[Rfam]
RNA sequence: AAUCACUGUUAGGGGUGCUCUUUUAUUAAAAGAGCUGAGAUAAUACCCUUGAACCUGAUAUGUUGUAAUCGACAUCGGAGGGAAACGGGAAGAAAAAAUA
Numbered sequence: 001a002a003u004c005a006c007u008g009u010u011a012g013g014g015g016u017g018c019u020c021u022u023u024u025a026u027u028a029a030a031a032g033a034g035c036u037g038a039g040a041u042a043a044u045a046c047c048c049u050u051g052a053a054c055c056u057g058a059u060a061u062g063u064u065g066u067a068a069u070c071g072a073c074a075u076c077g078g079a080g081g082g083a084a085a086c087g088g089g090a091a092g093a094a095a096a097a098a099u100a
Stems, first nucleotide, its partner, number of pairs: 006088005011049004016043001017035007054081003060075004
Dot-bracket structure: .....(((((((((.((((((((.....))))))).......)..))))....(((...((((........))))...)))..)))))............

Rfam assigns this 100-nucleotide sequence from Macellibacteroides fermentans to the family "TPP riboswitch aptamer (THI element)". A search with the family's covariance model found it, with a score of 55 bits.